[Rfam]
RNA sequence: AGAAUUGUGAGUGGAAGCUCUGCUGUCCAGUUACGAGAGACCGGAGUGGACACAGCCUUGUGUAAUCGGUUGUCACGCCCAUGUGGCAUUGCCGAGUAGCCUUAAGUGUGGAAGAGAUAACCGCUUGAAAGCAUCUCAAGCGGGAAACUCGUUGUCAAGAUGAGAUCUUGCCGGCCCUUGAGCCCCCUAAAGAGUCUUCAAGCCCAGACGUGAUAGUAGGUGUGGAACGCAGUAAUGCGUUAAGCUAAGCUGAUACUCAAUUGU
Numbered sequence: 001a002g003a004a005u006u007g008u009g010a011g012u013g014g015a016a017g018c019u020c021u022g023c024u025g026u027c028c029a030g031u032u033a034c035g036a037g038a039g040a041c042c043g044g045a046g047u048g049g050a051c052a053c054a055g056c057c058u059u060g061u062g063u064a065a066u067c068g069g070u071u072g073u074c075a076c077g078c079c080c081a082u083g084u085g086g087c088a089u090u091g092c093c094g095a096g097u098a099g100c101c102u103u104a105a106g107u108g109u110g111g112a113a114g115a116g117a118u119a120a121c122c123g124c125u126u127g128a129a130a131g132c133a134u135c136u137c138a139a140g141c142g143g144g145a146a147a148c149u150c151g152u153u154g155u156c157a158a159g160a161u162g163a164g165a166u167c168u169u170g171c172c173g174g175c176c177c178u179u180g181a182g183c184c185c186c187c188u189a190a191a192g193a194g195u196c197u198u199c200a201a202g203c204c205c206a207g208a209c210g211u212g213a214u215a216g217u218a219g220g221u222g223u224g225g226a227a228c229g230c231a232g233u234a235a236u237g238c239g240u241u242a243a244g245c246u247a248a249g250c251u252g253a254u255a256c257u258c259a260a261u262u263g264u
Stems, first nucleotide, its partner, number of pairs: 001168003005164002014156002016153002020049005027044002051110004059104002066095005071088006114150003121143005173184003192258003196210001198208002214252004219246002227240005